A member of the RNA family "Small nucleolar RNA SNORA32" from Anolis carolinensis, 121 nucleotides long.
[Rfam]
Nucleotides: 121
Stems, first nucleotide, its partner, number of pairs: 003055003007051001010048003028043002070114004076107004086100002
Number, partner (000 for none) and nucleotide at each position: 001000u002000g003055g004054u005053c006000u007051c008000u009000a010048c011047c012046a013000a014000g015000g016000c017000u018000g019000c020000u021000a022000g023000g024000a025000a026000a027000u028043g029042c030000u031000g032000u033000u034000u035000c036000u037000g038000g039000u040000a041000u042029g043028c044000u045000g046012u047011g048010g049000a050000c051007g052000u053005g054004a055003c056000c057000a058000u059000a060000a061000a062000g063000c064000a065000a066000u067000a068000c069000u070114u071113c072112c073111a074000a075000g076107g077106a078105u079104u080000u081000u082000g083000u084000u085000u086100u087099g088000c089000u090000a091000c092000u093000g094000u095000a096000g097000u098000a099087c100086a101000a102000c103000a104079a105078a106077u107076u108000c109000g110000u111073u112072g113071g114070a115000g116000a117000c118000a119000u120000u121000u

Taxonomically the source falls in Anolis (Eukaryota, Bilateria, Chordata, Unidentata). Rfam describes the family as follows. ACA32 is a member of the H/ACA class of snoRNA that guide the sites of modification of uridines to pseudouridines. It is annotated as an H/ACA-box small nucleolar RNA.